[Rfam]
RNA sequence: CCUGCGGCGGAAUGAAUUUUUCCGAAAAUGGGCUGUUGCGCAGCGUGAUCAUGCUGCGCGGGAACGACCUAACGUUCCCGACUAUGAGCCUCACGGCUCCCUGAGCGCCACGACCCCAGAAGGGUUGUGGCGCUCGGAUC
Numbered sequence: 001c002c003u004g005c006g007g008c009g010g011a012a013u014g015a016a017u018u019u020u021u022c023c024g025a026a027a028a029u030g031g032g033c034u035g036u037u038g039c040g041c042a043g044c045g046u047g048a049u050c051a052u053g054c055u056g057c058g059c060g061g062g063a064a065c066g067a068c069c070u071a072a073c074g075u076u077c078c079c080g081a082c083u084a085u086g087a088g089c090c091u092c093a094c095g096g097c098u099c100c101c102u103g104a105g106c107g108c109c110a111c112g113a114c115c116c117c118a119g120a121a122g123g124g125u126u127g128u129g130g131c132g133c134u135c136g137g138a139u140c
Stems, first nucleotide, its partner, number of pairs: 008024005035082003038059009060079007086099005100137002103135014
RNA: sbcD RNA
Organism: Burkholderia sp. SRS-W-2-2016